[Rfam]
RNA sequence: CGUAAGUUUCAGGGCGGGGUGCAAAUCCCCACUGGCGGUAUAGUGUACAAAGCACUAAGCCCGCGAGCCUUUGUGGCUGACUUGGUGAAAUUCCAAGGCCAACGGUUAUAGUCCGGAUGAAAGAAACGAGGA
Numbered sequence: 001c002g003u004a005a006g007u008u009u010c011a012g013g014g015c016g017g018g019g020u021g022c023a024a025a026u027c028c029c030c031a032c033u034g035g036c037g038g039u040a041u042a043g044u045g046u047a048c049a050a051a052g053c054a055c056u057a058a059g060c061c062c063g064c065g066a067g068c069c070u071u072u073g074u075g076g077c078u079g080a081c082u083u084g085g086u087g088a089a090a091u092u093c094c095a096a097g098g099c100c101a102a103c104g105g106u107u108a109u110a111g112u113c114c115g116g117a118u119g120a121a122a123g124a125a126a127c128g129a130g131g132a
Stems, first nucleotide, its partner, number of pairs: 003130001006127005017029003031112002033101002035064004059099002067077003081097005103115003
The record is a 132-nucleotide RNA sequence from Fannyhessea vaginae, which matches "FMN riboswitch aptamer (RFN element)" in Rfam. A search with the family's covariance model found it, with a score of 112 bits. Lineage of the source: Bacteria > Actinomycetota > Coriobacteriia > Atopobiaceae > Fannyhessea vaginae. The base pairs follow the family's consensus structure, which is taken from published work. Rfam links the family to the GO term FMN binding.